[Rfam]
RNA sequence: CCUGGACAAAAUUAAAAUGCUCUUCUGUCCUCCUAAUAGUUCACAUGGACCCUGACAGGAGAGCAUUUUAAUUUUGUCAAGU
Dot-bracket structure: .((.((((((.((((((((((((((((((....(.((.......))..)....)))))))))))))))))).)))))).)).
RNA: mir-3660 microRNA precursor family
Organism: Chinchilla lanigera